RNA sequence: UGCAUGGGGUCUGCGAAUGCCCCACGAGGCGUCAUGCCGGAAUUUCGCGUCCACUCUUUACAAAAAAAAGGGACGUAUCAUG
Numbered sequence: 001u002g003c004a005u006g007g008g009g010u011c012u013g014c015g016a017a018u019g020c021c022c023c024a025c026g027a028g029g030c031g032u033c034a035u036g037c038c039g040g041a042a043u044u045u046c047g048c049g050u051c052c053a054c055u056c057u058u059u060a061c062a063a064a065a066a067a068a069a070g071g072g073a074c075g076u077a078u079c080a081u082g
Base pairs, nucleotide, nucleotide: 005024006023007022008021009020010019047076048075049074050073051072052071